[Rfam]
RNA sequence: GGUCGAUGAUGACAAAGAAGUUUUCUGAGGGCACAGGGAAAUUCCACCCCAUUACCCCUUUGGCUCCCAGCAGUCCCUGUUCUAUCACGCCGUAGUAGAGCUGUGAUUGAGGAAGAGAUUGCUGACAGUCUGGGAUUAAUUCAGUUCCAGUUCUCCACAGUAAAGGGAGUUGUGGUACCAAAUAUAAUCCAACAAACCUGGUGAAGACGAGCUCAUGGUGAUGGGGUGUCCUCAUUUGCUGUGCAUGAUCAAAGGUUUUCAAGCUGAGACC
Numbered sequence: 001g002g003u004c005g006a007u008g009a010u011g012a013c014a015a016a017g018a019a020g021u022u023u024u025c026u027g028a029g030g031g032c033a034c035a036g037g038g039a040a041a042u043u044c045c046a047c048c049c050c051a052u053u054a055c056c057c058c059u060u061u062g063g064c065u066c067c068c069a070g071c072a073g074u075c076c077c078u079g080u081u082c083u084a085u086c087a088c089g090c091c092g093u094a095g096u097a098g099a100g101c102u103g104u105g106a107u108u109g110a111g112g113a114a115g116a117g118a119u120u121g122c123u124g125a126c127a128g129u130c131u132g133g134g135a136u137u138a139a140u141u142c143a144g145u146u147c148c149a150g151u152u153c154u155c156c157a158c159a160g161u162a163a164a165g166g167g168a169g170u171u172g173u174g175g176u177a178c179c180a181a182a183u184a185u186a187a188u189c190c191a192a193c194a195a196a197c198c199u200g201g202u203g204a205a206g207a208c209g210a211g212c213u214c215a216u217g218g219u220g221a222u223g224g225g226g227u228g229u230c231c232u233c234a235u236u237u238g239c240u241g242u243g244c245a246u247g248a249u250c251a252a253a254g255g256u257u258u259u260c261a262a263g264c265u266g267a268g269a270c271c
Stems, first nucleotide, its partner, number of pairs: 001271004036250002045228008063212004068124007081110002084107006090100001132190001134189005147175003153169004

This 271-nucleotide RNA from Dicaeum eximium belongs to the Rfam family "Small Cajal body specific RNA 6". It is annotated as a small Cajal body RNA. The match comes from Rfam's covariance-model search (94 bits). The family's consensus secondary structure is taken from published work. About the family: U88 is small Cajal body specific RNA (scaRNA). scaRNAs are a novel class of small nuclear RNAs which localise to the Cajal bodies. Lineage of the source: Eukaryota > Eumetazoa > Euteleostomi > Amniota > Dicaeum.